RNA sequence: GCGAUGAGCUGAAUUGUGUAAGCCGGAAAACAUGCCUUAUGGCACGUACGAAUGUGGCGUACGGUUUUUCGCCUCAAUACGCAAGGCACCUGUUUUAUACAGGUGCC
Numbered sequence: 001g002c003g004a005u006g007a008g009c010u011g012a013a014u015u016g017u018g019u020a021a022g023c024c025g026g027a028a029a030a031c032a033u034g035c036c037u038u039a040u041g042g043c044a045c046g047u048a049c050g051a052a053u054g055u056g057g058c059g060u061a062c063g064g065u066u067u068u069u070c071g072c073c074u075c076a077a078u079a080c081g082c083a084a085g086g087c088a089c090c091u092g093u094u095u096u097a098u099a100c101a102g103g104u105g106c107c
Stems, first nucleotide, its partner, number of pairs: 014077003018073001024071008034043002045063002048060003085107009
The family of this 107-nucleotide RNA sequence from Metabacillus lacus is "BsrF". The family's consensus secondary structure was predicted with WAR. It scores 104 bits against the family's covariance model. The family's RNA type in Rfam is small RNA. The source organism's lineage runs through Bacteria, Bacillati, Bacillota, Caryophanales and Metabacillus.